Shown here is a 178-nucleotide RNA from Oryza barthii, a member of the family "MIR807 microRNA precursor family".
RNA sequence: AACCACACUAUCAAUGAAUGGAUUCACCCGCGAGAUGACGUGGUUGUUUCACAUAGGACAAGGACAUGACAUCCUAUUACUAGCCAUAUCACGAAAUUAAUAGGAUAUACCGUGUCAUCAUCCUAGAUGGAACAACCAUGUCAUCUCAUGGGUGAAUCCAUUCAUCGAUAGUGUAGUU
Dot-bracket structure: (((.(((.((((.((.(((.((((((((.(.((.(((((.((((((((..(..((.((....(((...(.(((((((((......((........))))))))))).).....)))....)).))..)..)))))))).))))).)).).)))))))).))).)).)))).))).)))
Numbered sequence: 001a002a003c004c005a006c007a008c009u010a011u012c013a014a015u016g017a018a019u020g021g022a023u024u025c026a027c028c029c030g031c032g033a034g035a036u037g038a039c040g041u042g043g044u045u046g047u048u049u050c051a052c053a054u055a056g057g058a059c060a061a062g063g064a065c066a067u068g069a070c071a072u073c074c075u076a077u078u079a080c081u082a083g084c085c086a087u088a089u090c091a092c093g094a095a096a097u098u099a100a101u102a103g104g105a106u107a108u109a110c111c112g113u114g115u116c117a118u119c120a121u122c123c124u125a126g127a128u129g130g131a132a133c134a135a136c137c138a139u140g141u142c143a144u145c146u147c148a149u150g151g152g153u154g155a156a157u158c159c160a161u162u163c164a165u166c167g168a169u170a171g172u173g174u175a176g177u178u
Stems, first nucleotide, its partner, number of pairs: 001178003005174003009170004014165002017162003021158008030149001032147002035144005041138008051128001054125002057122002063116003069108001071106009086097002
Notes
The base pairs follow the family's consensus structure, which was predicted with WAR. Its family is annotated with RISC complex and miRNA-mediated post-transcriptional gene silencing in the Gene Ontology. It scores 189 bits against the family's covariance model.